Source information
A member of the RNA family "c-di-AMP riboswitch aptamer (ydaO/yuaA leader)" from Streptomyces diacarni, 175 nucleotides long. Its family is annotated with cyclic-di-AMP binding and regulation of gene expression in the Gene Ontology. Taxonomically the source falls in Streptomyces (Bacteria, Bacillati, Actinomycetes, Streptomycetaceae).

[Rfam]
Nucleotides: 175
Base pairs, nucleotide, nucleotide: 011161013159014158019031020030033156034155035154036153037152038151043079044078045077046076047075080141081140082139088118089117090116121135122134123133124132
Number, partner (000 for none) and nucleotide at each position: 001000g002000u003000g004000g005000a006000a007000u008000g009000c010000u011161c012000a013159c014158c015000a016000g017000a018000c019031c020030c021000u022000u023000u024000u025000c026000g027000g028000c029000a030020g031019g032000a033156g034155c035154g036153g037152g038151g039000g040000a041000c042000c043079c044078a045077g046076g047075u048000a049000a050000g051000u052000g053000c054000c055000g056000u057000g058000c059000c060000g061000c062000a063000c064000a065000c066000c067000g068000c069000g070000g071000c072000c073000c074000g075047g076046c077045u078044u079043g080141g081140g082139g083000u084000g085000a086000a087000g088118u089117c090116a091000g092000c093000u094000c095000c096000g097000c098000g099000u100000a101000c102000u103000c104000g105000g106000u107000g108000c109000g110000c111000g112000g113000a114000a115000a116090u117089g118088g119000c120000c121135g122134g123133g124132c125000a126000a127000c128000u129000c130000c131000a132124g133123c134122c135121c136000g137000a138000a139082u140081c141080c142000g143000a144000c145000a146000g147000c148000u149000c150000a151038c152037c153036u154035c155034g156033c157000a158014g159013g160000c161011g162000c163000c164000a165000g166000g167000a168000g169000a170000g171000g172000a173000c174000a175000c